[Rfam]
Nucleotides: 161
Base pairs, nucleotide, nucleotide: 012125014123015122016048019045021043023042024041025040026039027038049090050089052087054086056083057082058081060079061078062077063076064075092120093119094118098116099115100114102112103111146158147157148156149155
Number, partner (000 for none) and nucleotide at each position: 001000c002000a003000u004000u005000u006000u007000c008000c009000c010000u011000g012125g013000g014123a015122g016048g017000g018000a019045a020000c021043a022000u023042a024041u025040c026039u027038u028000g029000a030000u031000c032000a033000u034000g035000a036000a037000g038027g039026a040025g041024g042023u043021u044000u045019u046000c047000g048016c049090a050089g051000a052087g053000u054086g055000a056083g057082g058081c059000u060079c061078a062077u063076c064075c065000a066000u067000c068000g069000c070000a071000c072000u073000c074000u075064g076063g077062a078061u079060g080000u081058g082057c083056u084000g085000a086054u087052c088000c089050c090049u091000g092120c093119u094118g095000c096000g097000c098116u099115u100114u101000c102112c103111c104000c105000a106000a107000a108000c109000g110000u111103g112102g113000g114100a115099a116098a117000c118094u119093g120092g121000a122015c123014u124000g125012c126000a127000u128000a129000a130000u131000u132000u133000g134000u135000g136000g137000u138000a139000g140000u141000u142000u143000u144000u145000u146158a147157a148156a149155a150000u151000u152000c153000u154000a155149u156148u157147u158146u159000u160000u161000c